[Rfam]
RNA: Actinobacteria sRNA Ms_IGR-5
Organism: Nocardioides sp. Root614
RNA sequence: ACACGGGAAAGGAGGUGGUCCGAAGAAUGAUUUCUUUGAGGACGCGUGAGGUGGCUGCCCGCUAGCAGCCCGAGUACGAACUGGUCGGCUUCGUCGACCAGGGCUGCUCGCGAAAUCACAGCAGCCACCCGACCCGCAGGUGCACCGGGACGUCCCCCGGUCAGGUCCACCGGACCACGCCUGCGGGUCGCUGCAU
Numbered sequence: 001a002c003a004c005g006g007g008a009a010a011g012g013a014g015g016u017g018g019u020c021c022g023a024a025g026a027a028u029g030a031u032u033u034c035u036u037u038g039a040g041g042a043c044g045c046g047u048g049a050g051g052u053g054g055c056u057g058c059c060c061g062c063u064a065g066c067a068g069c070c071c072g073a074g075u076a077c078g079a080a081c082u083g084g085u086c087g088g089c090u091u092c093g094u095c096g097a098c099c100a101g102g103g104c105u106g107c108u109c110g111c112g113a114a115a116u117c118a119c120a121g122c123a124g125c126c127a128c129c130c131g132a133c134c135c136g137c138a139g140g141u142g143c144a145c146c147g148g149g150a151c152g153u154c155c156c157c158c159g160g161u162c163a164g165g166u167c168c169a170c171c172g173g174a175c176c177a178c179g180c181c182u183g184c185g186g187g188u189c190g191c192u193g194c195a196u
Stems, first nucleotide, its partner, number of pairs: 014059006060112003064108003068104004074098002130190013144161006